Rfam assigns this 155-nucleotide RNA from Amborella trichopoda to the family "MIR8565 microRNA precursor family".
[Rfam]
RNA sequence: CCCCCACCCAUAUGUGUGGGACUUCAAAGGAUCACCAUUAAAGUUGGCACGGAUCUCUAUAAAACUUAUCACAUAGAUGUGGGACUUGACUUUUCUAUAGAUCCGUGCCAAAUUUAAUGGUGAUCCUUUGGAGUCCCACACACAUGGGGUGGGGG
Numbered sequence: 001c002c003c004c005c006a007c008c009c010a011u012a013u014g015u016g017u018g019g020g021a022c023u024u025c026a027a028a029g030g031a032u033c034a035c036c037a038u039u040a041a042a043g044u045u046g047g048c049a050c051g052g053a054u055c056u057c058u059a060u061a062a063a064a065c066u067u068a069u070c071a072c073a074u075a076g077a078u079g080u081g082g083g084a085c086u087u088g089a090c091u092u093u094u095c096u097a098u099a100g101a102u103c104c105g106u107g108c109c110a111a112a113u114u115u116a117a118u119g120g121u122g123a124u125c126c127u128u129u130g131g132a133g134u135c136c137c138a139c140a141c142a143c144a145u146g147g148g149g150u151g152g153g154g155g
Stems, first nucleotide, its partner, number of pairs: 002154006008147004013142001015140014030125003034121009044111013058097002061094004066089003069082005